[Rfam]
RNA sequence: CUCUGGAAAGCGGCGCGCCGGUUUCGGCGCGCCCACCGACGGGGUAGCUUCCGCACGUUUUGGCGCUGGCCGGAACGACGGGGGAAAUCUCUCAGGUGAAUCGACAGAG
Number, nucleotide and partner (000 for none) at each position: 001c109002u108003c107004u106005g105006g000007a000008a000009a000010g000011c000012g033013g032014c031015g030016c029017g028018c027019c000020g000021g000022u000023u000024u000025c000026g000027g018028c017029g016030c015031g014032c013033c012034c000035a097036c096037c095038g093039a092040c000041g000042g091043g090044g089045u000046a000047g000048c084049u083050u082051c081052c080053g079054c000055a000056c000057g000058u000059u000060u000061u000062g000063g000064c000065g000066c000067u000068g000069g000070c000071c000072g000073g000074a000075a000076c000077g000078a000079c053080g052081g051082g050083g049084g048085a000086a000087a000088u000089c044090u043091c042092u039093c038094a000095g037096g036097u035098g000099a000100a000101u000102c000103g000104a000105c005106a004107g003108a002109g001
The family of this 109-nucleotide RNA sequence from Rhodoblastus sp. is "Glycine riboswitch aptamer". Its family is annotated with glycine biosynthetic process in the Gene Ontology. It scores 38 bits against the family's covariance model.